[Rfam]
RNA: ASpks TB sRNA
RNA sequence: CUUCAACGAGCCGAGCCACAGCGGCUGUUCACGGUCCUUGCCGUACGUGGCCAGCAGUGCCUGCGCCUC
Numbered sequence: 001c002u003u004c005a006a007c008g009a010g011c012c013g014a015g016c017c018a019c020a021g022c023g024g025c026u027g028u029u030c031a032c033g034g035u036c037c038u039u040g041c042c043g044u045a046c047g048u049g050g051c052c053a054g055c056a057g058u059g060c061c062u063g064c065g066c067c068u069c
Base pairs, nucleotide, nucleotide: 014026015025016024017023032059033058037054038053041050042049043048